[Rfam]
RNA sequence: GUCAGCACCCCCGGCUGAAGCACGGGGGCUUCGUGCCCCCCGCUUUCAGGUAGCUGACCAGCUUAAGCCUUAACUGGCUACGUGAGCGAGCAAGAGUUAAAGUUCCUACCCUGGAAUGCGUGCUAGUUCCAGGCACUAGAACCAAAUCGUUAAACAGUUCUAAGGGGUUAAGACAGUGCGAUUUGGAAAGUACCGACUCUGAACAUUAGCGUUCGCGCAGCGUGC
Number, nucleotide and partner (000 for none) at each position: 001g058002u057003c056004a055005g054006c053007a051008c000009c028010c027011c025012c024013g000014g021015c020016u000017g000018a000019a000020g015021c014022a000023c000024g012025g011026g000027g010028g009029c000030u000031u000032c000033g000034u000035g000036c000037c000038c000039c000040c000041c000042g000043c000044u000045u000046u000047c000048a000049g000050g000051u007052a000053g006054c005055u004056g003057a002058c001059c000060a000061g210062c209063u208064u000065a206066a079067g078068c077069c076070u000071u000072a000073a000074c000075u000076g069077g068078c067079u066080a000081c000082g204083u203084g000085a000086g200087c000088g000089a000090g000091c000092a000093a000094g000095a198096g197097u196098u195099a000100a000101a000102g000103u000104u140105c139106c000107u000108a000109c000110c133111c132112u131113g130114g129115a128116a127117u126118g000119c000120g000121u000122g221123c220124u219125a000126g117127u116128u115129c114130c113131a112132g111133g110134c000135a000136c000137u000138a000139g105140a104141a000142c186143c185144a184145a183146a182147u181148c180149g179150u178151u000152a000153a000154a177155c176156a000157g174158u173159u172160c000161u170162a169163a168164g000165g000166g000167g000168u163169u162170a161171a000172g159173a158174c157175a000176g155177u154178g150179c149180g148181a147182u146183u145184u144185g143186g142187a000188a000189a000190g000191u000192a000193c000194c000195g098196a097197c096198u095199c000200u086201g000202a000203a083204c082205a000206u065207u000208a063209g062210c061211g000212u000213u000214c000215g000216c000217g000218c000219a124220g123221c122222g000223u000224g000225c000